[Rfam]
RNA sequence: AGCCUCAUUCUAGAUGAGAAUGGGUACUGCUGAUCAUGGUGUCCAAAAAACUUUAUGUGGCUAAAUUGAGACACAGGCUAUGCUUCCAUCACAGUACACAUAUUGCAGUGGUGACAAUGAAACCUGUAACAUUU
Numbered sequence: 001a002g003c004c005u006c007a008u009u010c011u012a013g014a015u016g017a018g019a020a021u022g023g024g025u026a027c028u029g030c031u032g033a034u035c036a037u038g039g040u041g042u043c044c045a046a047a048a049a050a051c052u053u054u055a056u057g058u059g060g061c062u063a064a065a066u067u068g069a070g071a072c073a074c075a076g077g078c079u080a081u082g083c084u085u086c087c088a089u090c091a092c093a094g095u096a097c098a099c100a101u102a103u104u105g106c107a108g109u110g111g112u113g114a115c116a117a118u119g120a121a122a123c124c125u126g127u128a129a130c131a132u133u134u
Stems, first nucleotide, its partner, number of pairs: 002061003006057003021045007073127005087113006
Shown here is a 134-nucleotide sequence, a member of the family "Small nucleolar RNA SNORA1". The base pairs follow the family's consensus structure, which was predicted with PFOLD. Rfam classes the family as an H/ACA-box small nucleolar RNA. Rfam describes the family as follows. ACA1 is a member of the H/ACA class of snoRNA that guide the sites of modification of uridines to pseudouridines.